[Rfam]
RNA sequence: UAAUGUUAGGUCUGUGGAUGAAAGUCGAUGCCAGUCGCAGGCGAAACGAUCCACGUAAGUUAGGAAAAGAUUCUGAUGAGCAUGGUGCGGUAUAGAUGUAAGUCCUACCAAUGAAAGUUGAGAGUGUUAGUAGUGAGAGGUUAAGUCCGAGUAGCAAAAGCUCCAGUAGGCGAGUGUGGGGGCAAAAUCCAGGUCAGCUAGCAUUA
Numbered sequence: 001u002a003a004u005g006u007u008a009g010g011u012c013u014g015u016g017g018a019u020g021a022a023a024g025u026c027g028a029u030g031c032c033a034g035u036c037g038c039a040g041g042c043g044a045a046a047c048g049a050u051c052c053a054c055g056u057a058a059g060u061u062a063g064g065a066a067a068a069g070a071u072u073c074u075g076a077u078g079a080g081c082a083u084g085g086u087g088c089g090g091u092a093u094a095g096a097u098g099u100a101a102g103u104c105c106u107a108c109c110a111a112u113g114a115a116a117g118u119u120g121a122g123a124g125u126g127u128u129a130g131u132a133g134u135g136a137g138a139g140g141u142u143a144a145g146u147c148c149g150a151g152u153a154g155c156a157a158a159a160g161c162u163c164c165a166g167u168a169g170g171c172g173a174g175u176g177u178g179g180g181g182g183c184a185a186a187a188u189c190c191a192g193g194u195c196a197g198c199u200a201g202c203a204u205u206a
Stems, first nucleotide, its partner, number of pairs: 001206009012197003015191005028177003031041001034091006050085002058077001060075001063072002083184001104170005109120004124163001126161002133155002139148002
RNA: raiA RNA